[Rfam]
RNA sequence: CGUACUCCCCUUUACGACGGAUCGUCCGGCACGUACCUGCCGGUGAAGGAGACAACA
Numbered sequence: 001c002g003u004a005c006u007c008c009c010c011u012u013u014a015c016g017a018c019g020g021a022u023c024g025u026c027c028g029g030c031a032c033g034u035a036c037c038u039g040c041c042g043g044u045g046a047a048g049g050a051g052a053c054a055a056c057a
Stems, first nucleotide, its partner, number of pairs: 009049006026043006

msiK RNA: a 57-nucleotide sequence from Streptomyces abyssalis.
The family has 120 seed sequences and 1,374 matches in Rfam 15.1.
The match comes from Rfam's covariance-model search (62 bits).